[Rfam]
RNA sequence: UGUGGAUCGAUGAUGAUGUAAUUGUAACUGCGUUAUCUUUCUUGAACUUCCCAAGUAUUGAAGAAGACAUUACUUACUGAGAUCCAAG
Dot-bracket structure: (.(((((..........................................................................))))).)
A member of the RNA family "Small nucleolar RNA snoR27" from Brachypodium distachyon, 88 nucleotides long.
By type it is a C/D-box small nucleolar RNA.
The family has 6 seed sequences and 649 matches in Rfam 15.1.
The source organism's lineage runs through Eukaryota, Viridiplantae, Poaceae, Pooideae and Brachypodium.